[Rfam]
RNA sequence: AUAAUCAUUAGAGGUUGCAACCAACAAGAGUAAUUAGUGGAGUUCCUGCUUGAACUUUGAAGCUAAUGAAAGGGGCGGUUGCCGAAGCACCAAGGGAAGCAGGCCUUGGCGCGCUGGGACUUAGCUUAAGAGGCUAUGGACUGUCGCAGCGAAAAUCGUCAGCUGCGGGGCGCUAACGACGAC
Number, nucleotide and partner (000 for none) at each position: 001a000002u000003a000004a000005u000006c178007a000008u176009u175010a174011g173012a000013g000014g000015u000016u000017g082018c081019a080020a079021c078022c077023a000024a000025c074026a000027a000028g000029a000030g000031u000032a000033a067034u066035u065036a064037g063038u062039g000040g000041a000042g000043u000044u000045c000046c000047u000048g000049c000050u000051u000052g000053a000054a000055c000056u000057u000058u000059g000060a000061a000062g038063c037064u036065a035066a034067u033068g000069a000070a000071a000072g000073g000074g025075g000076c000077g022078g021079u020080u019081g018082c017083c000084g000085a000086a115087g114088c113089a000090c109091c108092a107093a106094g105095g104096g000097a000098a000099g000100c000101a000102g000103g000104c095105c094106u093107u092108g091109g090110c000111g000112c000113g088114c087115u086116g142117g141118g000119a000120c138121u000122u136123a135124g134125c133126u132127u000128a000129a000130g000131a000132g126133g125134c124135u123136a122137u000138g120139g000140a000141c117142u116143g000144u168145c167146g166147c165148a164149g163150c162151g000152a000153a000154a000155a000156u000157c000158g000159u000160c000161a000162g150163c149164u148165g147166c146167g145168g144169g000170g000171c000172g000173c011174u010175a009176a008177c000178g006179a000180c000181g000182a000183c000
Lysine riboswitch aptamer: a 183-nucleotide RNA from Lentilactobacillus hilgardii. It scores 89 bits against the family's covariance model. The base pairs follow the family's consensus structure, which is taken from published work. Lineage of the source: Bacteria > Bacillati > Bacillota > Bacilli > Lentilactobacillus hilgardii.